A member of the RNA family "Bacterial large subunit ribosomal RNA" from bacterium 1xD42-67, 333 nucleotides of a longer RNA.
The match comes from Rfam's covariance-model search (2781 bits).

RNA sequence: CGGGAGAAGGGUUGUUAAGGAACUCGGCAAAAUCACCCCGUAACUUCGGGAAAAGGGGAGCCCCUGUAAGGGGGCCGCAGAGAAUAGGCCCAAGCGACUGUUUACCAAAAACACAGGUCUAUGCUAAAUCGAAAGAUGACGUAUAUGGGCUGACGCCUGCCCGGUGCUGGAAGGUUAAGAGGAGGGCUCAGCGCAAGCGAAGGUCUGAAUUGAAGCCCCAGUAAACGGCGGCCGUAACUAUAACGGUCCUAAGGUAGCGAAAUUCCUUGUCAGGUAAGUUCUGACCCGCACGAAUGGCGUAACGAUUUGGGCGCUGUCUCAACAGCCCACCCG
Number, nucleotide and partner (000 for none) at each position: 001c333002g332003g331004g330005a000006g000007a000008a000009g328010g327011g326012u325013u324014g323015u322016u321017a000018a319019g318020g317021a000022a000023c000024u000025c000026g000027g000028c000029a000030a000031a000032a000033u000034c000035a000036c058037c057038c056039c055040g000041u000042a000043a000044c049045u000046u000047c000048g000049g044050g000051a000052a000053a000054a000055g039056g038057g037058g036059a000060g075061c074062c073063c072064c071065u070066g000067u000068a000069a000070g065071g064072g063073g062074g061075c060076c080077g000078c000079a000080g076081a000082g000083a000084a000085u000086a000087g000088g312089c311090c310091c309092a308093a307094g306095c304096g303097a000098c000099u113100g112101u111102u000103u000104a000105c000106c000107a000108a000109a000110a000111a101112c100113a099114c000115a000116g151117g150118u149119c148120u147121a146122u145123g144124c141125u000126a000127a000128a137129u136130c135131g000132a000133a000134a000135g130136a129137u128138g000139a000140c000141g124142u000143a000144u123145a122146u121147g120148g119149g118150c117151u116152g000153a000154c299155g298156c297157c296158u000159g229160c228161c227162c000163g000164g226165u225166g222167c221168u220169g219170g218171a000172a000173g217174g216175u215176u000177a000178a000179g211180a210181g000182g000183a000184g206185g205186g204187c203188u202189c000190a000191g198192c197193g000194c000195a000196a000197g192198c191199g000200a000201a000202g188203g187204u186205c185206u184207g000208a000209a000210u180211u179212g000213a000214a000215g175216c174217c173218c170219c169220a168221g167222u166223a000224a000225a165226c164227g161228g160229c159230g248231g247232c246233c245234g244235u243236a000237a000238c000239u000240a000241u000242a000243a235244c234245g233246g232247u231248c230249c253250u000251a000252a000253g249254g000255u000256a000257g000258c000259g286260a000261a000262a000263u000264u000265c000266c000267u000268u000269g285270u284271c283272a282273g281274g280275u000276a000277a000278g000279u000280u274281c273282u272283g271284a270285c269286c259287c000288g000289c000290a000291c000292g000293a000294a000295u000296g157297g156298c155299g154300u000301a000302a000303c096304g095305a000306u094307u093308u092309g091310g090311g089312c088313g000314c000315u000316g000317u020318c019319u018320c000321a016322a015323c014324a013325g012326c011327c010328c009329a000330c004331c003332c002333g001